Rfam assigns this 150-nucleotide sequence from Pipistrellus kuhlii to the family "U12 minor spliceosomal RNA". Taxonomically the source falls in Pipistrellus (Eukaryota, Eumetazoa, Bilateria, Tetrapoda). Gene Ontology terms of the family: pre-mRNA branch point binding, mRNA branch site recognition and U12 snRNP. Its Rfam clan is "U2 clan".
[Rfam]
RNA sequence: UUUUUUUAUGCUUAUGAGUAAGGAAAAUAAUGAUUCAGGGUGAUACCUGAAUUCUCACUGCUAAUGUAAGACGAAUUUUUGAGCCAGUAAAGGUUGCCCCUAAGGUGACCCGCCUACUUUUCAGGAUGCCUGGGAGUUUCAAUCUGCCUG
Numbered sequence: 001u002u003u004u005u006u007u008a009u010g011c012u013u014a015u016g017a018g019u020a021a022g023g024a025a026a027a028u029a030a031u032g033a034u035u036c037a038g039g040g041u042g043a044u045a046c047c048u049g050a051a052u053u054c055u056c057a058c059u060g061c062u063a064a065u066g067u068a069a070g071a072c073g074a075a076u077u078u079u080u081g082a083g084c085c086a087g088u089a090a091a092g093g094u095u096g097c098c099c100c101u102a103a104g105g106u107g108a109c110c111c112g113c114c115u116a117c118u119u120u121u122c123a124g125g126a127u128g129c130c131u132g133g134g135a136g137u138u139u140c141a142a143u144c145u146g147c148c149u150g
Base pairs, nucleotide, nucleotide: 004023005022006021007020008019032053033052034051035050036049037048038047039046054070055069057067058066084150087147088146091145092144093143094142095141096140100134101133103131104130105129106128107127109125110124112122